[Rfam]
Source information:
A member of the RNA family "Molybdenum/Tungsten riboswitch aptamer (Moco RNA motif)" from Halanaerobacter jeridensis, 130 nucleotides long.
RNA sequence: AUCAACUAUCACCUCCGAGUGUUAUCUUCUAAGGGAAAUUUACUACUAAUUUCUAGGAAGAAACACCGCUAGGCCUUGAGAGAAAUCUUAAGACCUCCCGUGCUUGGAAAGGAGAAAUAUAUUAAGGAGG
Numbered sequence: 001a002u003c004a005a006c007u008a009u010c011a012c013c014u015c016c017g018a019g020u021g022u023u024a025u026c027u028u029c030u031a032a033g034g035g036a037a038a039u040u041u042a043c044u045a046c047u048a049a050u051u052u053c054u055a056g057g058a059a060g061a062a063a064c065a066c067c068g069c070u071a072g073g074c075c076u077u078g079a080g081a082g083a084a085a086u087c088u089u090a091a092g093a094c095c096u097c098c099c100g101u102g103c104u105u106g107g108a109a110a111g112g113a114g115a116a117a118u119a120u121a122u123u124a125a126g127g128a129g130g
Stems, first nucleotide, its partner, number of pairs: 004123001013114004019066005025061005033054004071096003075092007097107002
The family's consensus secondary structure is taken from published work. The organism belongs to Halanaerobacter, within Bacteria. Gene Ontology terms of the family: molybdenum ion binding, tungstate binding and regulation of gene expression.